[Rfam]
RNA sequence: UAGCUCUUUGAUACGAAUGCAUUCUAUUCACUGCACCAUUUACUUUGGAGAUGAAUGAGUGGAGGGGAAAAGAAUUGCUAGAUCAAAGAAUUCUUUCUAUUCGAAAAAUAUACCUCAUACUGAAUUAUGCUUUUUAAUCUUUUUUAAAAAAAAUAAAUCUAUGCAUAUUUUAUUUGGACCUUGAUUUUUCGAUACAAUU
Numbered sequence: 001u002a003g004c005u006c007u008u009u010g011a012u013a014c015g016a017a018u019g020c021a022u023u024c025u026a027u028u029c030a031c032u033g034c035a036c037c038a039u040u041u042a043c044u045u046u047g048g049a050g051a052u053g054a055a056u057g058a059g060u061g062g063a064g065g066g067g068a069a070a071a072g073a074a075u076u077g078c079u080a081g082a083u084c085a086a087a088g089a090a091u092u093c094u095u096u097c098u099a100u101u102c103g104a105a106a107a108a109u110a111u112a113c114c115u116c117a118u119a120c121u122g123a124a125u126u127a128u129g130c131u132u133u134u135u136a137a138u139c140u141u142u143u144u145u146a147a148a149a150a151a152a153a154u155a156a157a158u159c160u161a162u163g164c165a166u167a168u169u170u171u172a173u174u175u176g177g178a179c180c181u182u183g184a185u186u187u188u189u190c191g192a193u194a195c196a197a198u199u
Base pairs, nucleotide, nucleotide: 019078020077022074023073031064032063034061035060037057038056039055040054041053101192102191103190104189107186108185109184120177121176122175124173125172126167127166128165129164130163132161142151143150
The family of this 199-nucleotide RNA from Lodderomyces elongisporus is "Small nucleolar RNA snR8". The family's consensus secondary structure was predicted with WAR. The literature on the family includes a 1988 paper in Mol Cell Biol by Parker et al., "Genetic analysis of small nuclear RNAs in Saccharomyces cerevisiae: viable sextuple mutant". The source organism's lineage runs through Eukaryota, Opisthokonta, Dikarya, Saccharomycotina and Lodderomyces elongisporus. A search with the family's covariance model found it, with a score of 80 bits. It is annotated as an H/ACA-box small nucleolar RNA. Gene Ontology terms of the family: RNA processing and nucleolus.